This 445-nucleotide sequence from Erinaceus europaeus belongs to the Rfam family "Bag-1 internal ribosome entry site (IRES)". Rfam describes the family as follows. This family represents the bag-1 internal ribosome entry site (IRES). Gene Ontology term of the family: ribosome binding. On this family, see Coldwell et al., Oncogene 2001: "The p36 isoform of BAG-1 is translated by internal ribosome entry following heat shock". The source organism's lineage runs through Eukaryota, Bilateria, Vertebrata, Gnathostomata and Erinaceus. It scores 180 bits against the family's covariance model.
RNA sequence: UGGGCGGUCAACAAGCGCAGGUCUGGCGGAGCGCGGUGGUGCGCGGAGACCACGAAGAGGCCGGCAGCUGCGGAGCCCCCGGCGGCGCGCCCCCCGGCCGAACCGGAAGCAGCGCCAGUCAGUGCCACUUGCCGUGCGCGGCCCGCCUCCGCCUCCGCCUCCGCCGCCGCCGCCGCCGCCUCCACCUCCACCUCCGCCGCCGCGGCUGCCGCCUCCGCCGCCUUCGCGGCGACCCUCGGUCAAGCGUGCAGCGCCCGGCGGUCAUGGCCGCACCAACCCGAGCGCCACCACCGGCGCUCGCAGGCCGCGGGUGAAGAAGAAAGUCCGAUCUCGCUCCGCCCGGCGCGGAGAGGCGAUCUGGAGCAAAGAGGUGGCCAGGAUCCCAGAGGUAACCAAGAGUGAAGAGGUGACCAGAAGCCAGAAAGGCACCGAGAGCCGAGAGGUG
Numbered sequence: 001u002g003g004g005c006g007g008u009c010a011a012c013a014a015g016c017g018c019a020g021g022u023c024u025g026g027c028g029g030a031g032c033g034c035g036g037u038g039g040u041g042c043g044c045g046g047a048g049a050c051c052a053c054g055a056a057g058a059g060g061c062c063g064g065c066a067g068c069u070g071c072g073g074a075g076c077c078c079c080c081g082g083c084g085g086c087g088c089g090c091c092c093c094c095c096g097g098c099c100g101a102a103c104c105g106g107a108a109g110c111a112g113c114g115c116c117a118g119u120c121a122g123u124g125c126c127a128c129u130u131g132c133c134g135u136g137c138g139c140g141g142c143c144c145g146c147c148u149c150c151g152c153c154u155c156c157g158c159c160u161c162c163g164c165c166g167c168c169g170c171c172g173c174c175g176c177c178g179c180c181u182c183c184a185c186c187u188c189c190a191c192c193u194c195c196g197c198c199g200c201c202g203c204g205g206c207u208g209c210c211g212c213c214u215c216c217g218c219c220g221c222c223u224u225c226g227c228g229g230c231g232a233c234c235c236u237c238g239g240u241c242a243a244g245c246g247u248g249c250a251g252c253g254c255c256c257g258g259c260g261g262u263c264a265u266g267g268c269c270g271c272a273c274c275a276a277c278c279c280g281a282g283c284g285c286c287a288c289c290a291c292c293g294g295c296g297c298u299c300g301c302a303g304g305c306c307g308c309g310g311g312u313g314a315a316g317a318a319g320a321a322a323g324u325c326c327g328a329u330c331u332c333g334c335u336c337c338g339c340c341c342g343g344c345g346c347g348g349a350g351a352g353g354c355g356a357u358c359u360g361g362a363g364c365a366a367a368g369a370g371g372u373g374g375c376c377a378g379g380a381u382c383c384c385a386g387a388g389g390u391a392a393c394c395a396a397g398a399g400u401g402a403a404g405a406g407g408u409g410a411c412c413a414g415a416a417g418c419c420a421g422a423a424a425g426g427c428a429c430c431g432a433g434a435g436c437c438g439a440g441a442g443g444u445g
Stems, first nucleotide, its partner, number of pairs: 020104003024100004038093002041090002043053001045051002061082004067076002146425001148423001150421001166262007280299007332347003336343001
Dot-bracket structure: ...................(((.((((..........((.(((.((...)).).......((((..((......))..))))......)).))...)))).))).........................................(.(.(...............(((((((...................................................................................))))))).................(((((((......)))))))................................(((.(......).))).........................................................................).).)....................